RNA sequence: ACCGAGGGCCGUGACUGGCGCGCUGGGAUGGACAAACCAUCGGGGAGCGGCCCCCGGACCCGGCUGAACCCCGGGGACCGGAACCGUGCCGUGCGCCUGGGCCGUACCG
Dot-bracket structure: ..((.(((((((..(([[[[[......((((.....))))..))..))))))).))...............................(((..]]]]]..))).......

Shown here is a 109-nucleotide RNA sequence from Streptomyces swartbergensis, a member of the family "ZMP/ZTP riboswitch aptamer (pfl RNA motif)". Pairs were carried over by alignment from the consensus structure, which is taken from published work. Gene Ontology terms of the family: regulation of purine nucleotide biosynthetic process and one-carbon metabolic process. Taxonomically the source falls in Streptomyces (Bacteria, Bacillati, Actinomycetota, Streptomycetaceae).